[Rfam]
RNA: Small nucleolar RNA SNORA1
RNA sequence: AGCCUCAUUCUAGAUGAAAAUGGGCACUGUUCUUCACGGUGUCCAGAAAUAAUUACGUGGCUACUUUGAGACAGGGGUUAUGCUUCCAUCACAGUAAGUUUAUUGCAGUGAUGACAAUGAGACCUGUAACAUUU
Number, nucleotide and partner (000 for none) at each position: 001a000002g061003c060004c059005u000006c057007a000008u055009u000010c000011u000012a000013g000014a000015u000016g000017a000018a000019a000020a000021u045022g044023g043024g042025c041026a040027c039028u000029g000030u000031u000032c000033u000034u000035c000036a000037c000038g000039g027040u026041g025042u024043c023044c022045a021046g000047a000048a000049a000050u000051a000052a000053u000054u000055a008056c000057g006058u000059g004060g003061c002062u000063a000064c000065u000066u000067u000068g000069a000070g000071a000072c000073a127074g000075g125076g124077g123078u000079u000080a000081u000082g000083c000084u000085u000086c000087c113088a112089u111090c110091a109092c108093a000094g000095u000096a000097a000098g000099u000100u000101u000102a000103u000104u000105g000106c000107a000108g092109u091110g090111a089112u088113g087114a000115c000116a000117a000118u000119g000120a000121g000122a000123c077124c076125u075126g000127u073128a000129a000130c000131a000132u000133u000134u000